[Rfam]
RNA sequence: GGUCGGAUAAGGCGUUUACGCCGCAUCCGACAGCCGUUGCCUGAUGCGACGCUGUGCGUCUUAUCAGGCC
Numbered sequence: 001g002g003u004c005g006g007a008u009a010a011g012g013c014g015u016u017u018a019c020g021c022c023g024c025a026u027c028c029g030a031c032a033g034c035c036g037u038u039g040c041c042u043g044a045u046g047c048g049a050c051g052c053u054g055u056g057c058g059u060c061u062u063a064u065c066a067g068g069c070c
Base pairs, nucleotide, nucleotide: 002031003030004029005028006027007026008025011022012021013020014019039069040068041067042066043065044064045063046062048060049059050058051057052056
RNA: Nucleoid-associated noncoding RNA 4 (CssrE)